Small nucleolar RNA snoR27: a 91-nucleotide RNA from Trema andersonii. The base pairs follow the family's consensus structure, which was predicted with WAR. The organism belongs to Trema, within Eukaryota. The match comes from Rfam's covariance-model search (72 bits). Rfam links the family to the GO terms nucleolus and RNA processing. For this family Rfam cites "Multiple snoRNA gene clusters from Arabidopsis" (Brown et al., RNA, 2001).

RNA sequence: ACUGGAUCUAUGAUGUUACUAAAAUACUGCGUUAUCUAUCUGCAAUUUUCUGCAAGGAAUUGAAGAAGAUUACAUUUCGCUGAGAUCUGAU
Number, nucleotide and partner (000 for none) at each position: 001a091002c000003u089004g088005g087006a086007u085008c000009u000010a000011u000012g000013a000014u000015g000016u000017u000018a000019c000020u000021a000022a000023a000024a000025u000026a000027c000028u000029g000030c000031g000032u000033u000034a000035u000036c000037u000038a000039u000040c000041u000042g000043c000044a000045a000046u000047u000048u000049u000050c000051u000052g000053c000054a000055a000056g000057g000058a000059a000060u000061u000062g000063a000064a000065g000066a000067a000068g000069a000070u000071u000072a000073c000074a000075u000076u000077u000078c000079g000080c000081u000082g000083a000084g000085a007086u006087c005088u004089g003090a000091u001